[Rfam]
The record is a 405-nucleotide RNA from Nitrosospira lacus, which matches "cspA thermoregulator" in Rfam. A search with the family's covariance model found it, with a score of 85 bits. Gene Ontology terms of the family: regulation of translation and response to temperature stimulus. The family's consensus secondary structure is taken from published work.

RNA sequence: AAAACUUGAACUUAUUGAGAUAAUGCGUAUCCUAAUUAAGUCUUUUGGAUUCAAGCUGUAGAAUAUGAUACCUCUGGUUGACUCUUUUUCCUUGAUAUUCGAUGGCCGCAUACGGAUCACCGUAAGCGUAAAUUCAUUUUUAAGGAAAUAGCAUGGCAACAGGUAUUGUAAAGUGGUUCAACGACGCCAAAGGUUUUGGCUUUAUUACACCGGAUGGCGGUGGGGAAGAUUUGUUUGCACACUUCUCUGCGAUCAACAGUGACGGUUUCAAGUCGUUGCGCGAAACCCAGCGUGUCACUUUCGACGUGACGACCGGGCCCAAGGGUCUGCAGGCAUCGAAUAUCAAGCCUGAAUAAAAUCGAGCAGAAGCAAUCCGAGAACCCCGGCCAGUCCGGGGUUUUUUAU
Numbered sequence: 001a002a003a004a005c006u007u008g009a010a011c012u013u014a015u016u017g018a019g020a021u022a023a024u025g026c027g028u029a030u031c032c033u034a035a036u037u038a039a040g041u042c043u044u045u046u047g048g049a050u051u052c053a054a055g056c057u058g059u060a061g062a063a064u065a066u067g068a069u070a071c072c073u074c075u076g077g078u079u080g081a082c083u084c085u086u087u088u089u090c091c092u093u094g095a096u097a098u099u100c101g102a103u104g105g106c107c108g109c110a111u112a113c114g115g116a117u118c119a120c121c122g123u124a125a126g127c128g129u130a131a132a133u134u135c136a137u138u139u140u141u142a143a144g145g146a147a148a149u150a151g152c153a154u155g156g157c158a159a160c161a162g163g164u165a166u167u168g169u170a171a172a173g174u175g176g177u178u179c180a181a182c183g184a185c186g187c188c189a190a191a192g193g194u195u196u197u198g199g200c201u202u203u204a205u206u207a208c209a210c211c212g213g214a215u216g217g218c219g220g221u222g223g224g225g226a227a228g229a230u231u232u233g234u235u236u237g238c239a240c241a242c243u244u245c246u247c248u249g250c251g252a253u254c255a256a257c258a259g260u261g262a263c264g265g266u267u268u269c270a271a272g273u274c275g276u277u278g279c280g281c282g283a284a285a286c287c288c289a290g291c292g293u294g295u296c297a298c299u300u301u302c303g304a305c306g307u308g309a310c311g312a313c314c315g316g317g318c319c320c321a322a323g324g325g326u327c328u329g330c331a332g333g334c335a336u337c338g339a340a341u342a343u344c345a346a347g348c349c350u351g352a353a354u355a356a357a358a359u360c361g362a363g364c365a366g367a368a369g370c371a372a373u374c375c376g377a378g379a380a381c382c383c384c385g386g387c388c389a390g391u392c393c394g395g396g397g398u399u400u401u402u403u404a405u
Base pairs, nucleotide, nucleotide: 005019006018007017008016009015024212025211027208028207029206035203039201040200041199042198043193044192045191046190055188057186058185066180067179068178070177071176072175077157078156079155080154089146090145091144092143093142094141095140098116099115100114101113121126215309217307218306219305228236229235241295242294244292247290248289249288253280254278255277256276257275261274262273263272314329315328316327319325320324330351331350332349333348334347336346338344354371359366376402377401378400379399380398381397382396383395384394385393386392